Rfam assigns this 45-nucleotide sequence from Pontiella desulfatans to the family "Acido-Lenti-1 RNA". Rfam 15.1 lists 2,607 matches to the family in 171 species. By type it is a small RNA.
RNA sequence: CCCGGGGCUUAGCCCCGGGCUAAAUUGUUUUGCCCUUUCAGGGCA
Numbered sequence: 001c002c003c004g005g006g007g008c009u010u011a012g013c014c015c016c017g018g019g020c021u022a023a024a025u026u027g028u029u030u031u032g033c034c035c036u037u038u039c040a041g042g043g044c045a
Stems, first nucleotide, its partner, number of pairs: 001019008032044005